[Rfam]
RNA sequence: CACCCCCAUCCUUACUGCAGGCACAGUGAAAGCCGUAUUGUGCACUGUCAUUGUCCUGGGGGUAGAUUAAAAAGCCUUUUUUCCCUCCCCAGUGGGAAUUAAUGUGAUAUUCUCUGGGGCCUUUAGAACAGGCUGACACC
Numbered sequence: 001c002a003c004c005c006c007c008a009u010c011c012u013u014a015c016u017g018c019a020g021g022c023a024c025a026g027u028g029a030a031a032g033c034c035g036u037a038u039u040g041u042g043c044a045c046u047g048u049c050a051u052u053g054u055c056c057u058g059g060g061g062g063u064a065g066a067u068u069a070a071a072a073a074g075c076c077u078u079u080u081u082u083c084c085c086u087c088c089c090c091a092g093u094g095g096g097a098a099u100u101a102a103u104g105u106g107a108u109a110u111u112c113u114c115u116g117g118g119g120c121c122u123u124u125a126g127a128a129c130a131g132g133c134u135g136a137c138a139c140c
Stems, first nucleotide, its partner, number of pairs: 003062006011053001017048004023041005073134003077130001087119006094113004
Rfam assigns this 140-nucleotide RNA sequence from Chiloscyllium punctatum to the family "Small nucleolar RNA SNORA49". The base pairs follow the family's consensus structure, which was predicted with RNAalifold. The organism belongs to Chiloscyllium, within Eukaryota. Rfam's curators write: The snoRNA ACA49 has no identified RNA target. NB genomic sequence 1-nt different from published. The family's RNA type in Rfam is H/ACA-box small nucleolar RNA.